[Rfam]
RNA sequence: AUUGCGUUAGCGAUUGUCGUGGUAUCCUUUUUAGAGGGACGAUAAAAAGAUAAAACAGAAAGCGCGACCCUGA
Numbered sequence: 001a002u003u004g005c006g007u008u009a010g011c012g013a014u015u016g017u018c019g020u021g022g023u024a025u026c027c028u029u030u031u032u033a034g035a036g037g038g039a040c041g042a043u044a045a046a047a048a049g050a051u052a053a054a055a056c057a058g059a060a061a062g063c064g065c066g067a068c069c070c071u072g073a
Stems, first nucleotide, its partner, number of pairs: 010065003014061002019056002024051003030046004
Rfam assigns this 73-nucleotide sequence from Aestuariibaculum marinum to the family "Flavo-1 RNA". The family's consensus secondary structure is taken from published work. By type it is a small RNA.